[Rfam]
RNA: Bacterial RNase P class A
Organism: Aurantimonas sp. Leaf443
RNA sequence: UCAGCCGGCCGGGCGGCCGCUCCCGUCAUAGGUCGAAAGACGGCGGGGGAGGAAAGUCCGGGCUCCACGGAGAUACGGUGCCGGAUAACGUCCGGCGGGGGGAACCCCAGGGACAGUGCCACAGAGAACAGACCGCCUCGACCGUCGUCCGGCCGCCUCGCGCAGCCGGGGACCCGGCCGGGGUAAGGGUGAAACGGUGGGGUAAGAGCCCACCGCGCUUCUGGCAACAGCGGCGGCACGGCAAACCCCACCGGGAGCAAGACCGAAUAGGAACGACGCGGACCAGCGCCUCCGGGUGCCGGGCCAGCCCAUCUCCGGGCCGGUCGUUCGGGUGGGUUGCUCGAGCCGGUCCGCAAGGGCCGGCCCAGAGGAAUGGUCGCCGGGCGGCGCAUGCCGCUCACAGAACCCGGCUUACAGGCCGGCUGACACC
Numbered sequence: 001u002c003a004g005c006c007g008g009c010c011g012g013g014c015g016g017c018c019g020c021u022c023c024c025g026u027c028a029u030a031g032g033u034c035g036a037a038a039g040a041c042g043g044c045g046g047g048g049g050a051g052g053a054a055a056g057u058c059c060g061g062g063c064u065c066c067a068c069g070g071a072g073a074u075a076c077g078g079u080g081c082c083g084g085a086u087a088a089c090g091u092c093c094g095g096c097g098g099g100g101g102g103a104a105c106c107c108c109a110g111g112g113a114c115a116g117u118g119c120c121a122c123a124g125a126g127a128a129c130a131g132a133c134c135g136c137c138u139c140g141a142c143c144g145u146c147g148u149c150c151g152g153c154c155g156c157c158u159c160g161c162g163c164a165g166c167c168g169g170g171g172a173c174c175c176g177g178c179c180g181g182g183g184u185a186a187g188g189g190u191g192a193a194a195c196g197g198u199g200g201g202g203u204a205a206g207a208g209c210c211c212a213c214c215g216c217g218c219u220u221c222u223g224g225c226a227a228c229a230g231c232g233g234c235g236g237c238a239c240g241g242c243a244a245a246c247c248c249c250a251c252c253g254g255g256a257g258c259a260a261g262a263c264c265g266a267a268u269a270g271g272a273a274c275g276a277c278g279c280g281g282a283c284c285a286g287c288g289c290c291u292c293c294g295g296g297u298g299c300c301g302g303g304c305c306a307g308c309c310c311a312u313c314u315c316c317g318g319g320c321c322g323g324u325c326g327u328u329c330g331g332g333u334g335g336g337u338u339g340c341u342c343g344a345g346c347c348g349g350u351c352c353g354c355a356a357g358g359g360c361c362g363g364c365c366c367a368g369a370g371g372a373a374u375g376g377u378c379g380c381c382g383g384g385c386g387g388c389g390c391a392u393g394c395c396g397c398u399c400a401c402a403g404a405a406c407c408c409g410g411c412u413u414a415c416a417g418g419c420c421g422g423c424u425g426a427c428a429c430c
Stems, first nucleotide, its partner, number of pairs: 001426010011415001012381007020049008054413003058410005063257004072314001076253005081095005096110001097108004111248002116246002118242003133188002135184006142177002196214006215237001216235004221230003261338004271329006307320004345364008
Dot-bracket structure: ((((((((((((((((((.((((((((..............))))))))....[[[.[[[[[((((.....[...((((((((((.....)))))(((((....)))).)((...(((((............((((((((.((................................)).))))))..)).......((((((.......))))))(((((.(((....))).)))).)..)))..)))))))))))))...((((......((((((..............................((((...]..))))...)))))).....))))......((((((((....))))))))..........)))))))........................]]]]]]]].).))))))))))....